[Rfam]
RNA sequence: AUUAUUUGAGGUGGUAGAUUUCGUAGCGACCACACGCCGAAGGUAUUGACAAGGGGAAACCCUGAGAGAUGCAGGAGAGUGCUACGCCUGCCAAAUAAU
Numbered sequence: 001a002u003u004a005u006u007u008g009a010g011g012u013g014g015u016a017g018a019u020u021u022c023g024u025a026g027c028g029a030c031c032a033c034a035c036g037c038c039g040a041a042g043g044u045a046u047u048g049a050c051a052a053g054g055g056g057a058a059a060c061c062c063u064g065a066g067a068g069a070u071g072c073a074g075g076a077g078a079g080u081g082c083u084a085c086g087c088c089u090g091c092c093a094a095a096u097a098a099u
Stems, first nucleotide, its partner, number of pairs: 001099008011033005023085005035066001036044003071091005
A member of the RNA family "skipping-rope RNA" from Clostridium sp. CAG:58, 99 nucleotides long.
Rfam's curators put it in the seed alignment.
NCBI's taxonomy places the organism under Bacteria, Clostridia, Eubacteriales, Clostridiaceae, Clostridium.
It is annotated as a small RNA.